[Rfam]
This 78-nucleotide RNA from Amycolatopsis sp. CA-230715 belongs to the Rfam family "ZMP/ZTP riboswitch aptamer (pfl RNA motif)".
RNA sequence: AGCAGCGACUGGCGCAUCGAGGUGGAGCACCACCGGGGAGCGGACGACGAGCAGGCACCGCGCGCCUGGGUGCCGCCG
Numbered sequence: 001a002g003c004a005g006c007g008a009c010u011g012g013c014g015c016a017u018c019g020a021g022g023u024g025g026a027g028c029a030c031c032a033c034c035g036g037g038g039a040g041c042g043g044a045c046g047a048c049g050a051g052c053a054g055g056c057a058c059c060g061c062g063c064g065c066c067u068g069g070g071u072g073c074c075g076c077c078g
Base pairs, nucleotide, nucleotide: 003043005041006040009037010036011066012065013064014063015062022033023032024031025030055073056072057071058070059069
Dot-bracket structure: ..[.[[..[[(((((......((((....))))..]]..]].]...........[[[[[..)))))..]]]]].....
Pairs were carried over by alignment from the consensus structure, which is taken from published work.